[Rfam]
This 88-nucleotide RNA from Scyliorhinus torazame belongs to the Rfam family "mir-204 microRNA precursor family".
The match comes from Rfam's covariance-model search (66 bits).
NCBI's taxonomy places the organism under Eukaryota, Eumetazoa, Elasmobranchii, Galeomorphii, Scyliorhinus.
Rfam 15.1 lists 1,730 matches to the family in 644 species.
The family's consensus secondary structure was predicted with RNAalifold.

RNA sequence: CUGUGACCAGUGGGUUUCCCUUUCUCAUCCUAUGCCUGGGAAUAUUGAUAAGGCAGGGAGGAUAAAGGAUCACUCAACUGUCGAAUUC
Numbered sequence: 001c002u003g004u005g006a007c008c009a010g011u012g013g014g015u016u017u018c019c020c021u022u023u024c025u026c027a028u029c030c031u032a033u034g035c036c037u038g039g040g041a042a043u044a045u046u047g048a049u050a051a052g053g054c055a056g057g058g059a060g061g062a063u064a065a066a067g068g069a070u071c072a073c074u075c076a077a078c079u080g081u082c083g084a085a086u087u088c
Stems, first nucleotide, its partner, number of pairs: 019068004025062001028059004034054004